[Rfam]
RNA sequence: CGGUAGCUGGAUUCCACCGGGGAGUAAUCCCGAAGCCAGCCAAUGUCCGCUCUGGACCAUCAACCCACCUCUGGG
Number, nucleotide and partner (000 for none) at each position: 001c019002g018003g017004u016005a000006g040007c039008u038009g037010g036011a000012u000013u000014c000015c000016a004017c003018c002019g001020g031021g030022g029023a028024g000025u000026a000027a000028u023029c022030c021031c020032g000033a000034a000035g000036c010037c009038a008039g007040c006041c000042a000043a000044u000045g057046u056047c055048c054049g000050c000051u000052c000053u000054g048055g047056a046057c045058c000059a000060u000061c000062a000063a000064c000065c000066c000067a000068c000069c000070u000071c000072u000073g000074g000075g000

A member of the RNA family "DUF3085 RNA", 75 nucleotides long.
The sequence is in the family's curated seed alignment.
The family's RNA type in Rfam is cis-regulatory element.